[Rfam]
RNA sequence: CACAACUGAAUCGGCUUUCAAGGGCGGUAGCUAUGAUCUCCGAAAGGAGGUGAUAGCAUGACAGUAUACGAGGCGUUAACGCUAAUGCUUUCCUUCGGGACAUUCGUCGUCUUGAUUCUGUCCUUCCAUAAAAGGAAAUGAGCCGCCCUUGACCUAGGAUAACGGCUCAUUCUUGAGUUGCUUCCGUAUAGCCACCGCCUUUGAAGCGGCAGUUGUGGGGAUUCGUGUUACCAGCACGAGUC
Numbered sequence: 001c002a003c004a005a006c007u008g009a010a011u012c013g014g015c016u017u018u019c020a021a022g023g024g025c026g027g028u029a030g031c032u033a034u035g036a037u038c039u040c041c042g043a044a045a046g047g048a049g050g051u052g053a054u055a056g057c058a059u060g061a062c063a064g065u066a067u068a069c070g071a072g073g074c075g076u077u078a079a080c081g082c083u084a085a086u087g088c089u090u091u092c093c094u095u096c097g098g099g100a101c102a103u104u105c106g107u108c109g110u111c112u113u114g115a116u117u118c119u120g121u122c123c124u125u126c127c128a129u130a131a132a133a134g135g136a137a138a139u140g141a142g143c144c145g146c147c148c149u150u151g152a153c154c155u156a157g158g159a160u161a162a163c164g165g166c167u168c169a170u171u172c173u174u175g176a177g178u179u180g181c182u183u184c185c186g187u188a189u190a191g192c193c194a195c196c197g198c199c200u201u202u203g204a205a206g207c208g209g210c211a212g213u214u215g216u217g218g219g220g221a222u223u224c225g226u227g228u229u230a231c232c233a234g235c236a237c238g239a240g241u242c
Stems, first nucleotide, its partner, number of pairs: 001217006008210001013193004018152007026143001028141001034052002037050005060122005066116001073088003096114004163186003195209004220242010
The family of this 242-nucleotide RNA sequence from Paenibacillus aquistagni is "BsrG". A reference for the family is Meissner et al. (2016), "In Vitro Characterization of the Type I Toxin-Antitoxin System bsrE/SR5 from Bacillus subtilis", J Biol Chem. NCBI's taxonomy places the organism under Bacteria, Bacillota, Bacilli, Paenibacillaceae, Paenibacillus. Rfam classes the family as a small RNA. bsrE, bsrG and bsrH pair through intermolecular interactions with antisense sRNAs. They form type I toxin/antitoxin system that includes an mRNA encoding for a short, toxic peptide (bsrE, bsrG and bsrH) and an antitoxin that is comprised of an antisense RNA. bsrG encodes a 39-amino-acid toxin, and the 180 nucleotide antisense sRNA called SR4 acts as the antitoxin (they overlap by 123 nucleotides). SR4 interaction with the 3'UTR of bsrG RNA promotes bsrG degradation and inhibits its translation. BsrG interferes with cell envelope biosynthesis, causes membrane invaginations and delocalisation of the cell wall synthesis and initiates autolysis. bsrE RNA encodes 30 amino-acid toxin peptide. Its antitoxin gene, SR5 overlaps by 112 nucleotides at the 3' end of bsrE. SR5 also overlaps bsrG from nucleotide 163 to 52 (Rfam overlap check). The antitoxin SR5 promotes bsrE degradation but unlike SR4 it does not directly inhibits toxin mRNA translation. A search with the family's covariance model found it, with a score of 76 bits. Pairs were carried over by alignment from the consensus structure, which was predicted with WAR.